[Rfam]
RNA sequence: CACGCCGCCGCGGGAGAGCACUCGCUGGUCGCAGCGGGUCGCCGAAGGAGCAACUUCUCCCUCAGAAUCUCUCAGGCCCACGUACCGCAGCGGUCCG
Numbered sequence: 001c002a003c004g005c006c007g008c009c010g011c012g013g014g015a016g017a018g019c020a021c022u023c024g025c026u027g028g029u030c031g032c033a034g035c036g037g038g039u040c041g042c043c044g045a046a047g048g049a050g051c052a053a054c055u056u057c058u059c060c061c062u063c064a065g066a067a068u069c070u071c072u073c074a075g076g077c078c079c080a081c082g083u084a085c086c087g088c089a090g091c092g093g094u095c096c097g
Stems, first nucleotide, its partner, number of pairs: 006092003010088004020039006041077003044073002048071003054065002
The family of this 97-nucleotide RNA sequence from Actinoplanes utahensis is "Glycine riboswitch aptamer". Lineage of the source: Bacteria > Bacillati > Micromonosporales > Micromonosporaceae > Actinoplanes.